[Rfam]
RNA sequence: GGUCCCUGACCUGGGUAGAGUGGCACCUGGUCAGUGGUGCCAGCCUCCUUCCUAUCUGUCUGGGGCAAAGCAAUUCCUUAUUUAUCCAGGCUUGGCUUUCAGUCUGUGCCGGUGCCUGGUUCAUGACCUAGACAUACAG
Numbered sequence: 001g002g003u004c005c006c007u008g009a010c011c012u013g014g015g016u017a018g019a020g021u022g023g024c025a026c027c028u029g030g031u032c033a034g035u036g037g038u039g040c041c042a043g044c045c046u047c048c049u050u051c052c053u054a055u056c057u058g059u060c061u062g063g064g065g066c067a068a069a070g071c072a073a074u075u076c077c078u079u080a081u082u083u084a085u086c087c088a089g090g091c092u093u094g095g096c097u098u099u100c101a102g103u104c105u106g107u108g109c110c111g112g113u114g115c116c117u118g119g120u121u122c123a124u125g126a127c128c129u130a131g132a133c134a135u136a137c138a139g
Base pairs, nucleotide, nucleotide: 002066003065004064005063006062008060011058013056014055018047019046020045022041023040024039025038026037027036079134081132082131083130084129094127096125102121104119105118106117108115109114